[Rfam]
RNA: Mason-Pfizer monkey virus packaging signal
Organism: Sciurus vulgaris
RNA sequence: UGGCACUCAAUGUGGGGCGUGGAUAAGGGGGAAUUUGCCAGGGAAGUGGCGUCUAAUUGUUAGGCCGAAAAAAGUGAAAGUCAGUUCAACAAAGAUCACCAAAGGAGCCUGCCACACCGCUCUUAAAGGUACAGUAGCACCUAACUAUGGGACAAGAAUUAAGUAAGCAUAAAGUUUUUGUUAAGCAAUUAAAAGAAGCUUUAAAGACACGGGGAGUAAAGAUUAAGAGUAAUGAUCUUUUUAAGUUUUUUGACCUUAAGGACACCUGUCCGU
Numbered sequence: 001u002g003g004c005a006c007u008c009a010a011u012g013u014g015g016g017g018c019g020u021g022g023a024u025a026a027g028g029g030g031g032a033a034u035u036u037g038c039c040a041g042g043g044a045a046g047u048g049g050c051g052u053c054u055a056a057u058u059g060u061u062a063g064g065c066c067g068a069a070a071a072a073a074g075u076g077a078a079a080g081u082c083a084g085u086u087c088a089a090c091a092a093a094g095a096u097c098a099c100c101a102a103a104g105g106a107g108c109c110u111g112c113c114a115c116a117c118c119g120c121u122c123u124u125a126a127a128g129g130u131a132c133a134g135u136a137g138c139a140c141c142u143a144a145c146u147a148u149g150g151g152a153c154a155a156g157a158a159u160u161a162a163g164u165a166a167g168c169a170u171a172a173a174g175u176u177u178u179u180g181u182u183a184a185g186c187a188a189u190u191a192a193a194a195g196a197a198g199c200u201u202u203a204a205a206g207a208c209a210c211g212g213g214g215a216g217u218a219a220a221g222a223u224u225a226a227g228a229g230u231a232a233u234g235a236u237c238u239u240u241u242u243a244a245g246u247u248u249u250u251u252g253a254c255c256u257u258a259a260g261g262a263c264a265c266c267u268g269u270c271c272g273u
Base pairs, nucleotide, nucleotide: 006031007030008029013025014024038049039048040047085129086128089124094120097119104112135155137153140151141150142149143148160203161202162201163199164198210252211251212250213249214248215247216246217245220238221237222236223235224234225233258273260271261270262269263268